A member of the RNA family "6S-Flavo RNA", 105 nucleotides long. Rfam classes the family as a small RNA.

Nucleotides: 105
Stems, first nucleotide, its partner, number of pairs: 023084005033075005042066002049060004
Number, partner (000 for none) and nucleotide at each position: 001000a002000c003000u004000c005000a006000a007000c008000g009000c010000u011000a012000a013000u014000a015000a016000a017000u018000u019000a020000a021000a022000a023084a024083g025082a026081g027080u028000g029000a030000g031000u032000c033075u034074a035073g036072a037071u038000c039000c040000u041000a042066g043065a044000g045000c046000g047000u048000g049060c050059c051058u052057u053000u054000u055000u056000u057052a058051a059050g060049g061000a062000u063000u064000a065043u066042c067000g068000a069000a070000u071037a072036u073035u074034u075033a076000g077000u078000u079000a080027g081026c082025u083024c084023u085000a086000a087000a088000c089000u090000u091000g092000u093000a094000u095000a096000a097000a098000u099000g100000g101000a102000g103000u104000u105000u
The base pairs follow the family's consensus structure, which is taken from published work.